Overview
Rfam assigns this 66-nucleotide RNA from Burkholderia vietnamiensis to the family "int-alpA RNA". The organism belongs to Burkholderia vietnamiensis, within Bacteria.
RNA sequence: GUCAAGCCUAGGGCGGCCACCCGAAUCCCGGAUUCCUUCACCGGCUGGCUUGACACCUUCCGAAGG
Dot-bracket structure: ((((((((..(((......))).....((((...[[[[[.))))..)))))))).......]]]]]
Numbered sequence: 001g002u003c004a005a006g007c008c009u010a011g012g013g014c015g016g017c018c019a020c021c022c023g024a025a026u027c028c029c030g031g032a033u034u035c036c037u038u039c040a041c042c043g044g045c046u047g048g049c050u051u052g053a054c055a056c057c058u059u060c061c062g063a064a065g066g
Stems, first nucleotide, its partner, number of pairs: 001054008011022003028044004035066005
Rfam describes the family as follows. Acidobacteria (1 example), Planctomycetes (1 example), Proteobacteria. The family's RNA type in Rfam is small RNA.